[Rfam]
RNA sequence: UCUAAUUAAAUGAUGAUUUCAUAGUUCAUCUGAUGAACUUUGAUGAACAUGCAGAAAUUAGUCUUUCGCUCCUAUCUGACAAUUGCU
Number, nucleotide and partner (000 for none) at each position: 001u000002c000003u000004a084005a083006u082007u081008a000009a000010a000011u000012g000013a000014u000015g000016a000017u000018u000019u000020c000021a000022u000023a000024g000025u000026u000027c000028a000029u000030c000031u000032g000033a000034u000035g000036a000037a000038c000039u000040u000041u000042g000043a000044u000045g000046a000047a000048c000049a000050u000051g000052c000053a000054g000055a000056a000057a000058u000059u000060a000061g000062u000063c000064u000065u000066u000067c000068g000069c000070u000071c000072c000073u000074a000075u000076c000077u000078g000079a000080c000081a007082a006083u005084u004085g000086c000087u000